[Rfam]
RNA: Pyrrolysine insertion sequence mttB
Organism: Desulfitobacterium hafniense
RNA sequence: UAGGUAGACAGCAAGAUUCCCGAUGCCCAGGCAAGUCAUGAAUUUACUCUGACUGGGUUCUUAACCGCCUUAGCCGGUGCCAAUCUGAUUUAUGGCGCCG
Numbered sequence: 001u002a003g004g005u006a007g008a009c010a011g012c013a014a015g016a017u018u019c020c021c022g023a024u025g026c027c028c029a030g031g032c033a034a035g036u037c038a039u040g041a042a043u044u045u046a047c048u049c050u051g052a053c054u055g056g057g058u059u060c061u062u063a064a065c066c067g068c069c070u071u072a073g074c075c076g077g078u079g080c081c082a083a084u085c086u087g088a089u090u091u092a093u094g095g096c097g098c099c100g
Base pairs, nucleotide, nucleotide: 003012025032033062034061035060077098079096080095